Shown here is a 100-nucleotide sequence from Morella rubra, a member of the family "Small nucleolar RNA snoR99".

Nucleotides: 100
Base pairs, nucleotide, nucleotide: 035093036092037091038090039089051080052079053078054077055076056075058073
Number, partner (000 for none) and nucleotide at each position: 001000g002000u003000g004000c005000u006000u007000c008000a009000g010000g011000g012000a013000u014000g015000a016000a017000c018000g019000g020000u021000u022000c023000c024000c025000u026000g027000a028000u029000a030000u031000u032000c033000a034000u035093c036092c037091a038090u039089c040000c041000g042000a043000u044000u045000c046000a047000c048000u049000u050000u051080g052079u053078c054077a055076g056075c057000u058073g059000u060000c061000u062000c063000u064000u065000c066000u067000g068000u069000u070000g071000u072000c073058u074000u075056g076055c077054u078053g079052a080051u081000c082000a083000u084000u085000u086000c087000a088000g089039g090038g091037u092036g093035g094000u095000a096000c097000a098000u099000u100000c
On this family, see Marker et al., Curr Biol 2002: "Experimental RNomics: identification of 140 candidates for small non-messenger RNAs in the plant Arabidopsis thaliana".